The family of this 139-nucleotide RNA sequence from Tripterygium wilfordii is "Small nucleolar RNA snoR77". The family's RNA type in Rfam is H/ACA-box small nucleolar RNA. The match comes from Rfam's covariance-model search (73 bits). The base pairs follow the family's consensus structure, which was predicted with WAR. Rfam links the family to the GO terms RNA processing and nucleolus.

RNA sequence: AGGCAGCCACUUUGCAGUACAUAUCGGGCAAAGAUGGUGUUAAACUGCUCGUAAAUUGAAUUUUACUUGGGCUCUACGGAUUUGCCGAGAGAGAGGGAUUGAUUUCCUUGAAGCUUGGCUUUGUAAGCCCAAGUACAUU
Numbered sequence: 001a002g003g004c005a006g007c008c009a010c011u012u013u014g015c016a017g018u019a020c021a022u023a024u025c026g027g028g029c030a031a032a033g034a035u036g037g038u039g040u041u042a043a044a045c046u047g048c049u050c051g052u053a054a055a056u057u058g059a060a061u062u063u064u065a066c067u068u069g070g071g072c073u074c075u076a077c078g079g080a081u082u083u084g085c086c087g088a089g090a091g092a093g094a095g096g097g098a099u100u101g102a103u104u105u106c107c108u109u110g111a112a113g114c115u116u117g118g119c120u121u122u123g124u125a126a127g128c129c130c131a132a133g134u135a136c137a138u139u
Base pairs, nucleotide, nucleotide: 002041003040004039005038007037008036010033011032012031013030014029015028066133067132068131071128072127073126078120079119081117084114085113089106090105091104